The record is a 405-nucleotide sequence from Pelusios castaneus, which matches "Vertebrate telomerase RNA" in Rfam.
The family's RNA type in Rfam is non-coding RNA gene.
Rfam 15.1 lists 523 matches to the family in 477 species.
It scores 221 bits against the family's covariance model.
Its family is annotated with telomerase catalytic core complex, telomerase activity and telomere maintenance via telomerase in the Gene Ontology.
About the family: Telomerase is a ribonucleoprotein reverse transcriptase that synthesises telomeric DNA. Telomerase RNAs differ greatly in sequence and structure between vertebrates, ciliates and yeasts, but they share a 5' pseudoknot structure close to the template sequence.
The organism belongs to Pelusios, within Eukaryota.
[Rfam]
RNA sequence: ACUCUGUGGUAGCGGGGGGGCCCCACUGUUUUUCCUAACCCUAAAUGUCGUGGCCCCUUCCUGCUGCAGCCGCCCGCUGUUUUACUCGCUGACUUUCAGCGGGCGGGGGGAGGCGGUGGAGACACUAAUCAAAAAACGUCAGCGCGGGGCCCUCCCCUGCCACGUGGGCCCGGGUCCGCCAUGGGGCUCGCCGGGGAAGCCCCCGCCGUCCCGCCCUGGAGGCCGCGGUCAGCCGGCCCGCGCCACUGCUGCCGCGAAGAGUUCGUCUCUGUUAGCCUCGGGGACGGCGGGGAAAAGACAGGUCCCGUGGGAGGCGUCCGGGAGAGCAAAUGUGUGAGCGGCGGCCCCUGCGCAACCGCGCUCCCCUGAGCUGUGGGGCCCGCGGGCGGGGCAGCUCAGACACGC
Numbered sequence: 001a002c003u004c005u006g007u008g009g010u011a012g013c014g015g016g017g018g019g020g021c022c023c024c025a026c027u028g029u030u031u032u033u034c035c036u037a038a039c040c041c042u043a044a045a046u047g048u049c050g051u052g053g054c055c056c057c058u059u060c061c062u063g064c065u066g067c068a069g070c071c072g073c074c075c076g077c078u079g080u081u082u083u084a085c086u087c088g089c090u091g092a093c094u095u096u097c098a099g100c101g102g103g104c105g106g107g108g109g110g111a112g113g114c115g116g117u118g119g120a121g122a123c124a125c126u127a128a129u130c131a132a133a134a135a136a137c138g139u140c141a142g143c144g145c146g147g148g149g150c151c152c153u154c155c156c157c158u159g160c161c162a163c164g165u166g167g168g169c170c171c172g173g174g175u176c177c178g179c180c181a182u183g184g185g186g187c188u189c190g191c192c193g194g195g196g197a198a199g200c201c202c203c204c205g206c207c208g209u210c211c212c213g214c215c216c217u218g219g220a221g222g223c224c225g226c227g228g229u230c231a232g233c234c235g236g237c238c239c240g241c242g243c244c245a246c247u248g249c250u251g252c253c254g255c256g257a258a259g260a261g262u263u264c265g266u267c268u269c270u271g272u273u274a275g276c277c278u279c280g281g282g283g284a285c286g287g288c289g290g291g292g293a294a295a296a297g298a299c300a301g302g303u304c305c306c307g308u309g310g311g312a313g314g315c316g317u318c319c320g321g322g323a324g325a326g327c328a329a330a331u332g333u334g335u336g337a338g339c340g341g342c343g344g345c346c347c348c349u350g351c352g353c354a355a356c357c358g359c360g361c362u363c364c365c366c367u368g369a370g371c372u373g374u375g376g377g378g379c380c381c382g383c384g385g386g387c388g389g390g391g392c393a394g395c396u397c398a399g400a401c402a403c404g405c
Stems, first nucleotide, its partner, number of pairs: 005164008014156011057113005071105009088143006094136003170321006183306006190299001201292007210282004224256005230251004235244003258270004336397004344392005356385005363378004